RNA sequence: CCAUCAUCACCAUUUACCUGAAUAAUCUUUCGGGCAUUUGGCGUGUUCGGAAGAAACUUCCGAGCGGUGCAAAAUGAGAGUAGAUCUAAAAUACGAUUUCCACCCCUUCGGAAGAUGUUUUCGAAGGGGUUAUUUU
Numbered sequence: 001c002c003a004u005c006a007u008c009a010c011c012a013u014u015u016a017c018c019u020g021a022a023u024a025a026u027c028u029u030u031c032g033g034g035c036a037u038u039u040g041g042c043g044u045g046u047u048c049g050g051a052a053g054a055a056a057c058u059u060c061c062g063a064g065c066g067g068u069g070c071a072a073a074a075u076g077a078g079a080g081u082a083g084a085u086c087u088a089a090a091a092u093a094c095g096a097u098u099u100c101c102a103c104c105c106c107u108u109c110g111g112a113a114g115a116u117g118u119u120u121u122c123g124a125a126g127g128g129g130u131u132a133u134u135u136u
Base pairs, nucleotide, nucleotide: 008045009044010043011040012039017034018033019032020031021030046064047063048062049061050060051059052058053057102130103129104128105127106126107125108124109123110122111121112120113119114118
This 136-nucleotide RNA from Actinobacillus indolicus belongs to the Rfam family "Histidine operon leader". Its family is annotated with histidine biosynthetic process in the Gene Ontology. At least 6 amino acid operons are known to be regulated by attenuation. In each a leader sequence of 150-200 bp is found upstream of the first gene in the operon. The family's consensus secondary structure is taken from published work. For this family Rfam cites "Attenuation in amino acid biosynthetic operons" (Kolter and Yanofsky, Annu Rev Genet, 1982). By type it is a cis-regulatory leader.